[Rfam]
RNA: Bacterial RNase P class A
RNA sequence: CCAGUCGGCCGGGCAGCCGCGCGCCGCAUUUCACCGAAAGGUGGCGGUUCGAGGAAAGUCCGGGCUCCAUGGAACAACGGUGCCGGAUAACGUCCGGCGGGGGCGACCCCAGGGAAAGUGCCACAGAAAGCAAACCGCCCCGCCACCUGAACGCCCGUGAAUGGGCGUUGAGGCGGCGGGGUAAGGGUGAAAGGGUGGGGUAAGAGCCCACCGCGUCUCCGGUAACGGCGACGGCACGGUAAACCCCACCGGGAGCAAAACCGAAUAGGGAUGACGCGGCGCAAGCCGGCCUGUUCCAGGCCAGUCAUCCGGGUAGGUUGCUUGAGGUGCGCCGCGAGGCGUGGCCCAGAGGAAUGGCUGCCACGUUUCCGUCUUCGGGCGGAAGCCAUACAGAACCCGGCUUACAGGCCGGCUGGCACU
Numbered sequence: 001c002c003a004g005u006c007g008g009c010c011g012g013g014c015a016g017c018c019g020c021g022c023g024c025c026g027c028a029u030u031u032c033a034c035c036g037a038a039a040g041g042u043g044g045c046g047g048u049u050c051g052a053g054g055a056a057a058g059u060c061c062g063g064g065c066u067c068c069a070u071g072g073a074a075c076a077a078c079g080g081u082g083c084c085g086g087a088u089a090a091c092g093u094c095c096g097g098c099g100g101g102g103g104c105g106a107c108c109c110c111a112g113g114g115a116a117a118g119u120g121c122c123a124c125a126g127a128a129a130g131c132a133a134a135c136c137g138c139c140c141c142g143c144c145a146c147c148u149g150a151a152c153g154c155c156c157g158u159g160a161a162u163g164g165g166c167g168u169u170g171a172g173g174c175g176g177c178g179g180g181g182u183a184a185g186g187g188u189g190a191a192a193g194g195g196u197g198g199g200g201u202a203a204g205a206g207c208c209c210a211c212c213g214c215g216u217c218u219c220c221g222g223u224a225a226c227g228g229c230g231a232c233g234g235c236a237c238g239g240u241a242a243a244c245c246c247c248a249c250c251g252g253g254a255g256c257a258a259a260a261c262c263g264a265a266u267a268g269g270g271a272u273g274a275c276g277c278g279g280c281g282c283a284a285g286c287c288g289g290c291c292u293g294u295u296c297c298a299g300g301c302c303a304g305u306c307a308u309c310c311g312g313g314u315a316g317g318u319u320g321c322u323u324g325a326g327g328u329g330c331g332c333c334g335c336g337a338g339g340c341g342u343g344g345c346c347c348a349g350a351g352g353a354a355u356g357g358c359u360g361c362c363a364c365g366u367u368u369c370c371g372u373c374u375u376c377g378g379g380c381g382g383a384a385g386c387c388a389u390a391c392a393g394a395a396c397c398c399g400g401c402u403u404a405c406a407g408g409c410c411g412g413c414u415g416g417c418a419c420u
Base pairs, nucleotide, nucleotide: 001416002415003414004413005412006411007410008409009408010407011405012362013361014360015359016358017357018356020051021050023048024047025046026045027044056403057402058401060400061399062398063397064396065255066254067253068252076294078251079250080249081248082247083097084096085095086094087093098112099110100109101108102107113246114245118244119243120240121239122238135186136185137182138181139180140179141178142177143176144175194212195211196210197209198208199207213235214233215232216231217230219228220227221226259319260318261317262316269310270309271308272307273306274305288302289301290300291299292298326345328343329342330341331340332339333338